Description
Shown here is a 121-nucleotide RNA sequence from Rhizobium sp. Leaf371, a member of the family "Rhizobiales sRNA Atu_C8". The family's consensus secondary structure was predicted with CMfinder. By type it is a small RNA. The literature on the family includes a 2012 paper in RNA Biol by Wilms et al., "Deep sequencing uncovers numerous small RNAs on all four replicons of the plant pathogen Agrobacterium tumefaciens". The source organism's lineage runs through Bacteria, Pseudomonadati, Hyphomicrobiales, Rhizobiaceae and Rhizobium.
RNA sequence: GAACAUUCAAGCAAUCAUUCUUGUGGUGGGAUCGCGCAUGGGCAGGAUGGUGUAACCAUCCGGCGAUAGCCACCCAUGCGCAAACCAAGGCUCCUGACGGGGCCUUUUUUUAUGCCUUCGA
Numbered sequence: 001g002a003a004c005a006u007u008c009a010a011g012c013a014a015u016c017a018u019u020c021u022u023g024u025g026g027u028g029g030g031a032u033c034g035c036g037c038a039u040g041g042g043c044a045g046g047a048u049g050g051u052g053u054a055a056c057c058a059u060c061c062g063g064c065g066a067u068a069g070c071c072a073c074c075c076a077u078g079c080g081c082a083a084a085c086c087a088a089g090g091c092u093c094c095u096g097a098c099g100g101g102g103c104c105u106u107u108u109u110u111u112a113u114g115c116c117u118u119c120g121a
Stems, first nucleotide, its partner, number of pairs: 007028001029117002032114001034081009045061006063070002087106008